A member of the RNA family "Small nucleolar RNA SNORD75" from Laticauda laticaudata, 62 nucleotides long. Rfam 15.1 lists 767 matches to the family in 616 species.
RNA sequence: AGCCAAUGAUGUUUUAAGAGUAGUGGACAGAAAGGUUUCUGAGAACUGAAAACACUGAGGCU
Numbered sequence: 001a002g003c004c005a006a007u008g009a010u011g012u013u014u015u016a017a018g019a020g021u022a023g024u025g026g027a028c029a030g031a032a033a034g035g036u037u038u039c040u041g042a043g044a045a046c047u048g049a050a051a052a053c054a055c056u057g058a059g060g061c062u
Base pairs, nucleotide, nucleotide: 001062002061003060004059
Dot-bracket structure: ((((......................................................))))
On this family, see Galardi et al., Mol Cell Biol 2002: "Purified box C/D snoRNPs are able to reproduce site-specific 2'-O-methylation of target RNA in vitro". Rfam classes the family as a C/D-box small nucleolar RNA.